The family of this 586-nucleotide part of an RNA from Selenomonas sputigena is "Bacterial large subunit ribosomal RNA".
The source organism's lineage runs through Bacteria, Bacillati, Negativicutes, Selenomonas and Selenomonas sputigena.
Clan: LSU clan.
It is one of the family's seed sequences.
RNA sequence: CCCGCGACUGGACAGAAAGACCCCAUGGAGCUUUACUGCAGCUUGGCAUUGAUGCCCGGCGAAUGAUGUACAGGAUAGGUGGGAGGCUAAGAAAGGCGGCCGCAAGGACGCCCGGAGCCGCUGUUGGGAUACCACCCUUCAUUCGCUGGUCAUCUAACCGGAGUAGUUACGACACUCGGGACAGUGCCAGGUGGGCAGUUUGACUGGGGCGGUCGCCUCCGAAAGAGCAACGGAGGCGUCCAAAGGUUCCCUCAGCGCGGACAGAAAUCGCGCGAAGAGCAUAAAGGCAGAAGGGAGCUUGACUGCGAGACCGACAAGUCGAGCAGGUACGAAAGUAGGGCUUAGUGAUCCGGUGGAAUGAGAGUGGAAUUGCCAUCGCUCAACGGAUAAAAGCUACCCUGGGGAUAACAGGCUAAUCUCUCCCAAGAGUCCAUAUCGACGGGGAGGUUUGGCACCUCGAUGUCGGCUCAUCACAUCCUGGGGCUGAAGCAGGUCCCAAGGGUUGGGCUGUUCGCCCAUUAAAGUGGUACGUGAGCUGGGUUCAGAACGUCGUGAGACAGUUCGGUCCAUAUCCAUCGCGGGCGGA
Numbered sequence: 001c002c003c004g005c006g007a008c009u010g011g012a013c014a015g016a017a018a019g020a021c022c023c024c025a026u027g028g029a030g031c032u033u034u035a036c037u038g039c040a041g042c043u044u045g046g047c048a049u050u051g052a053u054g055c056c057c058g059g060c061g062a063a064u065g066a067u068g069u070a071c072a073g074g075a076u077a078g079g080u081g082g083g084a085g086g087c088u089a090a091g092a093a094a095g096g097c098g099g100c101c102g103c104a105a106g107g108a109c110g111c112c113c114g115g116a117g118c119c120g121c122u123g124u125u126g127g128g129a130u131a132c133c134a135c136c137c138u139u140c141a142u143u144c145g146c147u148g149g150u151c152a153u154c155u156a157a158c159c160g161g162a163g164u165a166g167u168u169a170c171g172a173c174a175c176u177c178g179g180g181a182c183a184g185u186g187c188c189a190g191g192u193g194g195g196c197a198g199u200u201u202g203a204c205u206g207g208g209g210c211g212g213u214c215g216c217c218u219c220c221g222a223a224a225g226a227g228c229a230a231c232g233g234a235g236g237c238g239u240c241c242a243a244a245g246g247u248u249c250c251c252u253c254a255g256c257g258c259g260g261a262c263a264g265a266a267a268u269c270g271c272g273c274g275a276a277g278a279g280c281a282u283a284a285a286g287g288c289a290g291a292a293g294g295g296a297g298c299u300u301g302a303c304u305g306c307g308a309g310a311c312c313g314a315c316a317a318g319u320c321g322a323g324c325a326g327g328u329a330c331g332a333a334a335g336u337a338g339g340g341c342u343u344a345g346u347g348a349u350c351c352g353g354u355g356g357a358a359u360g361a362g363a364g365u366g367g368a369a370u371u372g373c374c375a376u377c378g379c380u381c382a383a384c385g386g387a388u389a390a391a392a393g394c395u396a397c398c399c400u401g402g403g404g405a406u407a408a409c410a411g412g413c414u415a416a417u418c419u420c421u422c423c424c425a426a427g428a429g430u431c432c433a434u435a436u437c438g439a440c441g442g443g444g445a446g447g448u449u450u451g452g453c454a455c456c457u458c459g460a461u462g463u464c465g466g467c468u469c470a471u472c473a474c475a476u477c478c479u480g481g482g483g484c485u486g487a488a489g490c491a492g493g494u495c496c497c498a499a500g501g502g503u504u505g506g507g508c509u510g511u512u513c514g515c516c517c518a519u520u521a522a523a524g525u526g527g528u529a530c531g532u533g534a535g536c537u538g539g540g541u542u543c544a545g546a547a548c549g550u551c552g553u554g555a556g557a558c559a560g561u562u563c564g565g566u567c568c569a570u571a572u573c574c575a576u577c578g579c580g581g582g583c584g585g586a
Stems, first nucleotide, its partner, number of pairs: 001582007010574003015568001022403004027399002029395005035199004042191007051154004056149011068137001078136005085119003095112004100107002158179003162176003202214004215237006238384001240340002246298006252278002255273006279288002303326004309320003328337003351378006360371002412453003416450001417447007427437002464539001465537004469531001470528005477502002480497006504518005545563004549558003